Rfam assigns this 107-nucleotide sequence from Plutella xylostella to the family "mir-8517 microRNA precursor family". Pairs were carried over by alignment from the consensus structure, which was predicted with RNAalifold. The match comes from Rfam's covariance-model search (89 bits).
RNA sequence: UUACGGAAGCUUUAGCUAUUUAACUGUUCUGUCACUCUCUGACAGAGAAGAAUUGGUUCUUUGACAGAGAGUGACAAAACAGUGCAAUAGCUAAUGGGUCCAGUAAG
Numbered sequence: 001u002u003a004c005g006g007a008a009g010c011u012u013u014a015g016c017u018a019u020u021u022a023a024c025u026g027u028u029c030u031g032u033c034a035c036u037c038u039c040u041g042a043c044a045g046a047g048a049a050g051a052a053u054u055g056g057u058u059c060u061u062u063g064a065c066a067g068a069g070a071g072u073g074a075c076a077a078a079a080c081a082g083u084g085c086a087a088u089a090g091c092u093a094a095u096g097g098g099u100c101c102a103g104u105a106a107g
Base pairs, nucleotide, nucleotide: 001106002105003104004103006101010096012094013093014092015091016090017089018088019087020086023083024082025081026080027079028068029067030066031065032064033063034062048058049057
Dot-bracket structure: ((((.(...(.(((((((((..((((((((((((.............((.......))...)))))))..........)))))..))))))))).)....).)))).